[Rfam]
RNA sequence: UCCGACCGGCCGGACAAGCACGCCCUGUGGCGAGCGAUCCGGCCCACAAGUGGAGGCUUCGAACUCCCACCUGACCGCCCUCCGGGGUGGCGGGUCACCGGUCAGACGGACCGCGGCACCGCCGACGGCGUCCGUCCGAAGCGCGCCCCGUGAUCUUCACGGCGGUGUUCCGGUAGUUCGAGGAACCCCGCCUGUGAUCGUCCGGGGCAUUUUUU
Numbered sequence: 001u002c003c004g005a006c007c008g009g010c011c012g013g014a015c016a017a018g019c020a021c022g023c024c025c026u027g028u029g030g031c032g033a034g035c036g037a038u039c040c041g042g043c044c045c046a047c048a049a050g051u052g053g054a055g056g057c058u059u060c061g062a063a064c065u066c067c068c069a070c071c072u073g074a075c076c077g078c079c080c081u082c083c084g085g086g087g088u089g090g091c092g093g094g095u096c097a098c099c100g101g102u103c104a105g106a107c108g109g110a111c112c113g114c115g116g117c118a119c120c121g122c123c124g125a126c127g128g129c130g131u132c133c134g135u136c137c138g139a140a141g142c143g144c145g146c147c148c149c150g151u152g153a154u155c156u157u158c159a160c161g162g163c164g165g166u167g168u169u170c171c172g173g174u175a176g177u178u179c180g181a182g183g184a185a186c187c188c189c190g191c192c193u194g195u196g197a198u199c200g201u202c203c204g205g206g207g208c209a210u211u212u213u214u215u
Stems, first nucleotide, its partner, number of pairs: 004103006012040002041096005047073002050070004054065002075090006105136005114127002117124001145208006151200003158196003161192005167186005
The record is a 215-nucleotide sequence from Streptomyces sp. SID4985, which matches "Streptomyces RNA 1601" in Rfam. For this family Rfam cites "Deep sequencing-based identification of small non-coding RNAs in Streptomyces coelicolor" (Vockenhuber et al., RNA Biol, 2011). The family's RNA type in Rfam is small RNA. About the family: Identified by deep sequencing of transcriptome at the end of exponential growth phase. Appears longer on northern blot than sequencing transcript. Streptomyces specific.